RNA sequence: GGAGCGUUGGCAGAGUGGUAAUGCACCGGACUCGAAAUCCGGCGAACCGGUUAAUACCGGCGCGCAGGUUCAAAUCCUGUACGCUCCU
Number, nucleotide and partner (000 for none) at each position: 001g087002g086003a085004g084005c083006g082007u081008u000009g000010g024011c023012a022013g000014a000015g000016u000017g000018g000019u000020a000021a000022u012023g011024c010025a000026c042027c041028g040029g039030a038031c000032u000033c000034g000035a000036a000037a000038u030039c029040c028041g027042g026043c000044g000045a000046a000047c000048c000049g000050g000051u000052u000053a000054a000055u000056a000057c000058c000059g000060g000061c000062g000063c000064g080065c079066a078067g077068g076069u000070u000071c000072a000073a000074a000075u000076c068077c067078u066079g065080u064081a007082c006083g005084c004085u003086c002087c001088u000
The family of this 88-nucleotide sequence from Holzapfeliella floricola is "tRNA". It is annotated as a transfer RNA. Transfer RNA (tRNA) molecules are approximately 80 nucleotides in length. The organism belongs to Holzapfeliella floricola, within Bacteria. Pairs were carried over by alignment from the consensus structure, which is taken from published work.